[Rfam]
RNA: Metazoan signal recognition particle RNA
Organism: Phytophthora lilii
RNA sequence: GCCGGGUUGGGUGGCGCCAACUUGUAACGGAUACGCUUCUGUCCGGGUAGUAAGGUGUGAGUGCUAUGGCAGGUGCCGCAGUGUCACUGUUCACAGGAUGUCGAUGGCGCGUCCAUCUCAAACCAGGAGUCGAUAUUGGGGCGCUUCCGUAGGGGAGCGCACCGAGGUCACUAAGGAAGGGUGUACCGCCCCAGGCUGGCUAACAGAGCAGGGAAAAGGCCUCGCUCUUGGUAGUGGGAGGAUCUCAUGCCAGAAUCCUGAUGUGAAACUGCUUCGCUGUACACCGCAGUGCGAUCACCUUGCGA
Numbered sequence: 001g002c003c004g005g006g007u008u009g010g011g012u013g014g015c016g017c018c019a020a021c022u023u024g025u026a027a028c029g030g031a032u033a034c035g036c037u038u039c040u041g042u043c044c045g046g047g048u049a050g051u052a053a054g055g056u057g058u059g060a061g062u063g064c065u066a067u068g069g070c071a072g073g074u075g076c077c078g079c080a081g082u083g084u085c086a087c088u089g090u091u092c093a094c095a096g097g098a099u100g101u102c103g104a105u106g107g108c109g110c111g112u113c114c115a116u117c118u119c120a121a122a123c124c125a126g127g128a129g130u131c132g133a134u135a136u137u138g139g140g141g142c143g144c145u146u147c148c149g150u151a152g153g154g155g156a157g158c159g160c161a162c163c164g165a166g167g168u169c170a171c172u173a174a175g176g177a178a179g180g181g182u183g184u185a186c187c188g189c190c191c192c193a194g195g196c197u198g199g200c201u202a203a204c205a206g207a208g209c210a211g212g213g214a215a216a217a218g219g220c221c222u223c224g225c226u227c228u229u230g231g232u233a234g235u236g237g238g239a240g241g242a243u244c245u246c247a248u249g250c251c252a253g254a255a256u257c258c259u260g261a262u263g264u265g266a267a268a269c270u271g272c273u274u275c276g277c278u279g280u281a282c283a284c285c286g287c288a289g290u291g292c293g294a295u296c297a298c299c300u301u302g303c304g305a
Stems, first nucleotide, its partner, number of pairs: 001048003004023007028045005050303008061292005067279004072274002078272005084266002088263004095259005101253001105252005111246001113241002116239005122232009132169003136165004141160008171175001178222003182218001189213003196206003